The family of this 276-nucleotide RNA sequence from Sphaeramia orbicularis is "Small Cajal body specific RNA 6". By type it is a small Cajal body RNA. The match comes from Rfam's covariance-model search (120 bits). The base pairs follow the family's consensus structure, which is taken from published work. U88 is small Cajal body specific RNA (scaRNA). scaRNAs are a novel class of small nuclear RNAs which localise to the Cajal bodies. U88 is found associated with both fibrillarin and Gar1p and co-localises with coilin in Cajal bodies. Taxonomically the source falls in Sphaeramia (Eukaryota, Chordata, Teleostei, Apogoninae).

RNA sequence: GGUCUGUGAUGUGAUGUAAAAGGUCUGAACUCAGAGCUCCGCCCUCAGCUGCCGUCCAGCUCCCAGCAGCCCCUGCCCUCUGCUCCCAGCGUGCACCAGUGAAGCAGCGCUGGCCCCAGGAGGCUGCUGACAGACAGGAUGUGACGUCACUUUGUGAGCCUGCACUGAGGUCCUGCAGGCGCGCAGUGAUGACAUCAUCCAACAGAACCAGUCACCAUGGAGUGUCAGGCUGAGGGGGCGGAGCCUGAGCGGUGAUCUCACUCUUCUACUGAGACC
Numbered sequence: 001g002g003u004c005u006g007u008g009a010u011g012u013g014a015u016g017u018a019a020a021a022g023g024u025c026u027g028a029a030c031u032c033a034g035a036g037c038u039c040c041g042c043c044c045u046c047a048g049c050u051g052c053c054g055u056c057c058a059g060c061u062c063c064c065a066g067c068a069g070c071c072c073c074u075g076c077c078c079u080c081u082g083c084u085c086c087c088a089g090c091g092u093g094c095a096c097c098a099g100u101g102a103a104g105c106a107g108c109g110c111u112g113g114c115c116c117c118a119g120g121a122g123g124c125u126g127c128u129g130a131c132a133g134a135c136a137g138g139a140u141g142u143g144a145c146g147u148c149a150c151u152u153u154g155u156g157a158g159c160c161u162g163c164a165c166u167g168a169g170g171u172c173c174u175g176c177a178g179g180c181g182c183g184c185a186g187u188g189a190u191g192a193c194a195u196c197a198u199c200c201a202a203c204a205g206a207a208c209c210a211g212u213c214a215c216c217a218u219g220g221a222g223u224g225u226c227a228g229g230c231u232g233a234g235g236g237g238g239c240g241g242a243g244c245c246u247g248a249g250c251g252g253u254g255a256u257c258u259c260a261c262u263c264u265u266c267u268a269c270u271g272a273g274a275c276c
Base pairs, nucleotide, nucleotide: 001276002275003274004273034259035258036257038255039254042236043235044234045233046232047231048230049229060222061221062220063219064129065128066127067126068125069124070123086113087112088111089110090109091108092107094104137200143196144195146193147192148191155183156182158180159179160178161177162176163175164174